The family of this 108-nucleotide sequence from Cohnella xylanilytica is "Guanidine-I riboswitch aptamer". Its family is annotated with regulation of gene expression in the Gene Ontology.
RNA sequence: AUAAGGCUUCCCUAGGGUUCCGCGCGAAGAAGUUCGCGGUCCGGUCCGAGAGGGAACGCGCCGUCCGAUAGGAGCCGGCGUACACGGAGGGACAAAAGCCCGGGAGUA
Numbered sequence: 001a002u003a004a005g006g007c008u009u010c011c012c013u014a015g016g017g018u019u020c021c022g023c024g025c026g027a028a029g030a031a032g033u034u035c036g037c038g039g040u041c042c043g044g045u046c047c048g049a050g051a052g053g054g055a056a057c058g059c060g061c062c063g064u065c066c067g068a069u070a071g072g073a074g075c076c077g078g079c080g081u082a083c084a085c086g087g088a089g090g091g092a093c094a095a096a097a098g099c100c101c102g103g104g105a106g107u108a
Base pairs, nucleotide, nucleotide: 008056009055010054011053012052015047016046020044021043022041023038024037025036026035027034028033058081059080060079061078062077063076065074083103085106089101090100091099